The family of this 102-nucleotide sequence from Calidifontibacillus erzurumensis is "Purine riboswitch aptamer".
Rfam 15.1 lists 4,097 matches to the family in 1,411 species.
It scores 86 bits against the family's covariance model.
Pairs were carried over by alignment from the consensus structure, which is taken from published work.
RNA sequence: AUGAAUAAUGAGGAAAACCGUCGUAUAAUGUCGGGAAUAUGGCCCGAAAGUUUCUACCAAGCUACCGGAAAUAGCUUGACUACGAGGUUUAUGAAGAAAGUG
Numbered sequence: 001a002u003g004a005a006u007a008a009u010g011a012g013g014a015a016a017a018c019c020g021u022c023g024u025a026u027a028a029u030g031u032c033g034g035g036a037a038u039a040u041g042g043c044c045c046g047a048a049a050g051u052u053u054c055u056a057c058c059a060a061g062c063u064a065c066c067g068g069a070a071a072u073a074g075c076u077u078g079a080c081u082a083c084g085a086g087g088u089u090u091a092u093g094a095a096g097a098a099a100g101u102g
Base pairs, nucleotide, nucleotide: 019087021085022084023083024082025081029049031047032046033045034044035043058078059077060076061075062074063073064072